[Rfam]
RNA sequence: CCCCGGGGACGACCCUGAAGCCUCCUUCGAGUCCGCGGGGACAACCCCA
Dot-bracket structure: (..(((((....)))))..)................((((....)))).